Notes
CyVA-1 RNA: a 78-nucleotide sequence from Chondrocystis sp. NIES-4102. The family's consensus secondary structure is taken from published work. The family's RNA type in Rfam is small RNA. About the family: Cyanobacteria, Acidobacteria (1 example), Verrucomicrobia (1 example).

RNA sequence: AAACUGGAUGGGGGUUGUACCGUUGUGACCCAUAAUUAAAAAUCGAAGGAGAGCGAUCGCCAGAUUUUUAGCCAGUUU
Numbered sequence: 001a002a003a004c005u006g007g008a009u010g011g012g013g014g015u016u017g018u019a020c021c022g023u024u025g026u027g028a029c030c031c032a033u034a035a036u037u038a039a040a041a042a043u044c045g046a047a048g049g050a051g052a053g054c055g056a057u058c059g060c061c062a063g064a065u066u067u068u069u070a071g072c073c074a075g076u077u078u
Base pairs, nucleotide, nucleotide: 001078002077003076004075005074006073009032010031011030012029037070038069039068040067041066042065043064044063